RNA sequence: AGUAGGAUUCGGUAGGUGAGGUUUUGCAGGGAUAUGGAUUGUUGCCGCAGAGUGGUGGAGACACCAUGGAGAAGGUUGGAGCAGGCUAUAUCGAACCUAAGGUGUAGCAUAAUACAGUUUCACUGCCCUGCAAAGCUAAAGCUCAAACGAAGAAGUCAGAA
Numbered sequence: 001a002g003u004a005g006g007a008u009u010c011g012g013u014a015g016g017u018g019a020g021g022u023u024u025u026g027c028a029g030g031g032a033u034a035u036g037g038a039u040u041g042u043u044g045c046c047g048c049a050g051a052g053u054g055g056u057g058g059a060g061a062c063a064c065c066a067u068g069g070a071g072a073a074g075g076u077u078g079g080a081g082c083a084g085g086c087u088a089u090a091u092c093g094a095a096c097c098u099a100a101g102g103u104g105u106a107g108c109a110u111a112a113u114a115c116a117g118u119u120u121c122a123c124u125g126c127c128c129u130g131c132a133a134a135g136c137u138a139a140a141g142c143u144c145a146a147a148c149g150a151a152g153a154a155g156u157c158a159g160a161a
Stems, first nucleotide, its partner, number of pairs: 005157002008154003011148001013100001015143003020137003024133008038118005044076003054065004085108003090103003
RNA: M-box riboswitch aptamer (ykoK leader)